The record is a 235-nucleotide RNA sequence from Enterococcus casseliflavus, which matches "T-box leader" in Rfam.
It is annotated as a cis-regulatory leader.
The organism belongs to Enterococcus casseliflavus, within Bacteria.
[Rfam]
RNA sequence: AAACAGACAUCGAAAAGAAGAGUAGCAAGGCUUGCUGUUUGAAGAGAGUCUCUGGUUGGUGCAAAGAGAUAACGCAUGGUUGUGAAACACAUCUUGGAGUCGUUUUUCCGAAAGAAAAGUAGGAGAGACCGGGUUUGCCCGUUACAGCAGCAGUCAUUGAUUGAUGACUUUCUGAGUUCAGUUGCUGUGAAGCACUGAUAAACAAAGGUGGAACCGCGUUGAUAACGUCCUUUAG
Numbered sequence: 001a002a003a004c005a006g007a008c009a010u011c012g013a014a015a016a017g018a019a020g021a022g023u024a025g026c027a028a029g030g031c032u033u034g035c036u037g038u039u040u041g042a043a044g045a046g047a048g049u050c051u052c053u054g055g056u057u058g059g060u061g062c063a064a065a066g067a068g069a070u071a072a073c074g075c076a077u078g079g080u081u082g083u084g085a086a087a088c089a090c091a092u093c094u095u096g097g098a099g100u101c102g103u104u105u106u107u108c109c110g111a112a113a114g115a116a117a118a119g120u121a122g123g124a125g126a127g128a129c130c131g132g133g134u135u136u137g138c139c140c141g142u143u144a145c146a147g148c149a150g151c152a153g154u155c156a157u158u159g160a161u162u163g164a165u166g167a168c169u170u171u172c173u174g175a176g177u178u179c180a181g182u183u184g185c186u187g188u189g190a191a192g193c194a195c196u197g198a199u200a201a202a203c204a205a206a207g208g209u210g211g212a213a214c215c216g217c218g219u220u221g222a223u224a225a226c227g228u229c230c231u232u233u234a235g
Stems, first nucleotide, its partner, number of pairs: 007100002015095004025083004037073003048070006103128007130141003178198005205232004216228005